[Rfam]
Nucleotides: 147
Stems, first nucleotide, its partner, number of pairs: 011109004016030005058100002130139001132137001
Number, partner (000 for none) and nucleotide at each position: 001000a002000g003000a004000a005000a006000a007000g008000u009000a010000g011109g012108u013107g014106c015000c016030g017029c018028c019027c020026c021000g022000c023000a024000c025000a026020g027019g028018g029017g030016c031000a032000a033000c034000g035000c036000a037000a038000a039000u040000a041000g042000a043000c044000c045000g046000a047000u048000a049000a050000g051000a052000a053000a054000u055000c056000a057000a058100g059099g060000a061000a062000a063000g064000g065000c066000c067000a068000a069000a070000a071000a072000a073000c074000a075000a076000a077000c078000c079000a080000a081000a082000c083000g084000g085000c086000g087000c088000a089000a090000g091000c092000c093000c094000a095000a096000u097000g098000c099059c100058c101000a102000a103000g104000c105000c106014g107013c108012a109011u110000g111000g112000c113000a114000a115000a116000a117000c118000g119000a120000c121000a122000u123000c124000a125000a126000a127000c128000c129000a130139c131000u132137a133000c134000u135000g136000u137132u138000u139130g140000a141000g142000c143000c144000u145000c146000c147000c